Glycine riboswitch aptamer: a 100-nucleotide RNA from Paenibacillus sp. FSL R5-0912. It scores 33 bits against the family's covariance model. Rfam links the family to the GO term glycine biosynthetic process.
RNA sequence: CUCUGGAGAGCAUCCACAGCCUGGACAACAGGAAACGGAUCACCAACGGGGAAACCUGCGGGCAGGAUAGCAGGGUAACUCUCAGGUACAAAGGACAGAG
Numbered sequence: 001c002u003c004u005g006g007a008g009a010g011c012a013u014c015c016a017c018a019g020c021c022u023g024g025a026c027a028a029c030a031g032g033a034a035a036c037g038g039a040u041c042a043c044c045a046a047c048g049g050g051g052a053a054a055c056c057u058g059c060g061g062g063c064a065g066g067a068u069a070g071c072a073g074g075g076u077a078a079c080u081c082u083c084a085g086g087u088a089c090a091a092a093g094g095a096c097a098g099a100g
Base pairs, nucleotide, nucleotide: 001100002099003098004097005096012040013039014038015037042087043086044085046082049081050080051079055074056073057072058071059070